[Rfam]
RNA sequence: AGUAGCUGAGGAUAGAAAGAUGGCUAUCACACAUAGCAAUAUGUAAAGUUAGGGUAUUUUGUAAUAUCCGAUGAGAUGUGGGAACAAUCGCCCCACCAGCUAUA
Numbered sequence: 001a002g003u004a005g006c007u008g009a010g011g012a013u014a015g016a017a018a019g020a021u022g023g024c025u026a027u028c029a030c031a032c033a034u035a036g037c038a039a040u041a042u043g044u045a046a047a048g049u050u051a052g053g054g055u056a057u058u059u060u061g062u063a064a065u066a067u068c069c070g071a072u073g074a075g076a077u078g079u080g081g082g083a084a085c086a087a088u089c090g091c092c093c094c095a096c097c098a099g100c101u102a103u104a
Stems, first nucleotide, its partner, number of pairs: 002103007011028005019089003030073001031044004078096005
Annotation: The family of this 104-nucleotide sequence from Thomasclavelia cocleata is "skipping-rope RNA". NCBI's taxonomy places the organism under Bacteria, Bacillati, Bacillota, Erysipelotrichales, Thomasclavelia. The match comes from Rfam's covariance-model search (49 bits).